[Rfam]
RNA sequence: CAGAAAUGGAGUCCAGAAACCAUUACAAACGGGGUGAAACCGAAAACCUUCAGAGUAGACAAUUA
Numbered sequence: 001c002a003g004a005a006a007u008g009g010a011g012u013c014c015a016g017a018a019a020c021c022a023u024u025a026c027a028a029a030c031g032g033g034g035u036g037a038a039a040c041c042g043a044a045a046a047c048c049u050u051c052a053g054a055g056u057a058g059a060c061a062a063u064u065a
Base pairs, nucleotide, nucleotide: 006023007022008021009020033048034047035046041058
Notes:
A member of the RNA family "DUF805 RNA", 65 nucleotides long. Pairs were carried over by alignment from the consensus structure, which is taken from published work. Clan: DUF805 clan. By type it is a cis-regulatory element. It is one of the family's seed sequences. The family has 46 seed sequences and 281 matches in Rfam 15.1.